[Rfam]
RNA: U7 small nuclear RNA
Organism: Dipodomys ordii
RNA sequence: AAGUGUUGCACCUCUUUUAAAAUUUGUCCAGCAAGUUUUCUAGCAUUUGCUAAAAAAUCCCU
Numbered sequence: 001a002a003g004u005g006u007u008g009c010a011c012c013u014c015u016u017u018u019a020a021a022a023u024u025u026g027u028c029c030a031g032c033a034a035g036u037u038u039u040c041u042a043g044c045a046u047u048u049g050c051u052a053a054a055a056a057a058u059c060c061c062u
Stems, first nucleotide, its partner, number of pairs: 035058005041052004
Dot-bracket structure: ..................................(((((.((((....)))).)))))....